A member of the RNA family "Group II catalytic intron D1-D4-6" from Acetohalobium arabaticum, 257 nucleotides long. Rfam links the family to the GO term Group II intron splicing. Rfam describes the family as follows. Group II introns are found in rRNA, tRNA and mRNA of organelles in fungi, plants and protists, and also in mRNA in bacteria. The pairing is the family consensus, mapped onto this sequence.
[Rfam]
RNA sequence: UAAAUCCCAUCAGGGUAAAGGUUAGCUAUCAGCUCUGUAUCGAGUCUUGGAGAGAUUACGGUAACGUAAUCUUUUAAGCGUAGACAGAAAGUUAGCAAGGUAGAAUCGUCUGAAUUGGUUUGUCAGCGGUGAAUGGUAUUGAGCCUCGAAAAUAGUGUACCUAAUGAUGAUGGCCGAAGCUGUCGCUAAGGUGGAAGGCAUUAUUUAGCUAUGCGGUUUGGCAAGCAUAGUUAAACACUCUCCGGGGUCUAAGGCCC
Numbered sequence: 001u002a003a004a005u006c007c008c009a010u011c012a013g014g015g016u017a018a019a020g021g022u023u024a025g026c027u028a029u030c031a032g033c034u035c036u037g038u039a040u041c042g043a044g045u046c047u048u049g050g051a052g053a054g055a056u057u058a059c060g061g062u063a064a065c066g067u068a069a070u071c072u073u074u075u076a077a078g079c080g081u082a083g084a085c086a087g088a089a090a091g092u093u094a095g096c097a098a099g100g101u102a103g104a105a106u107c108g109u110c111u112g113a114a115u116u117g118g119u120u121u122g123u124c125a126g127c128g129g130u131g132a133a134u135g136g137u138a139u140u141g142a143g144c145c146u147c148g149a150a151a152a153u154a155g156u157g158u159a160c161c162u163a164a165u166g167a168u169g170a171u172g173g174c175c176g177a178a179g180c181u182g183u184c185g186c187u188a189a190g191g192u193g194g195a196a197g198g199c200a201u202u203a204u205u206u207a208g209c210u211a212u213g214c215g216g217u218u219u220g221g222c223a224a225g226c227a228u229a230g231u232u233a234a235a236c237a238c239u240c241u242c243c244g245g246g247g248u249c250u251a252a253g254g255c256c257c
Stems, first nucleotide, its partner, number of pairs: 012036005020030003023224001025222002038090001040088002044085004048080002050075011140251001141249001143248006166242002169240002171237002173199003179192003204235011